[Rfam]
Rfam assigns this 129-nucleotide RNA from Caballeronia telluris to the family "Burkholderia sRNA 39". Trans-encoded, exhibits differential expression profiles dependent on growth phase and cell stimuli, such as antbiotics and serum. May function in bacterial metabolism and adaptation to the host. The organism belongs to Caballeronia, within Bacteria.
RNA sequence: GUAUUGUGGGGACCACCUCUCCAAGAGGUGUUUGGCAUUAGCCAGCGAGGACGACUUGCACGCGAGAAAUUAGACCCCUUCGUGCAAACACCAGCCAGUCGUCGAUAGCCAGCGAAGCCGCUUUUUUUG
Number, nucleotide and partner (000 for none) at each position: 001g000002u000003a000004u000005u000006g121007u120008g119009g118010g000011g113012a000013c000014c030015a029016c028017c027018u026019c025020u024021c000022c000023a000024a020025g019026a018027g017028g016029u015030g014031u000032u000033u000034g043035g042036c041037a000038u000039u000040a000041g036042c035043c034044a000045g109046c108047g000048a000049g000050g103051a102052c101053g100054a099055c098056u097057u086058g085059c084060a083061c000062g000063c082064g081065a080066g079067a000068a000069a000070u000071u000072a000073g000074a000075c000076c000077c000078c000079u066080u065081c064082g063083u060084g059085c058086a057087a000088a000089c000090a000091c000092c000093a000094g000095c000096c000097a056098g055099u054100c053101g052102u051103c050104g000105a000106u000107a000108g046109c045110c000111a000112g000113c011114g000115a000116a000117g000118c009119c008120g007121c006122u000123u000124u000125u000126u000127u000128u000129g000
Gene Ontology term of the family: bacterial biofilm matrix.
The literature on the family includes a 2017 paper in Sci Rep by Sass et al., "Identification of small RNAs abundant in Burkholderia cenocepacia biofilms reveal putative regulators with a potential role in carbon and iron metabolism".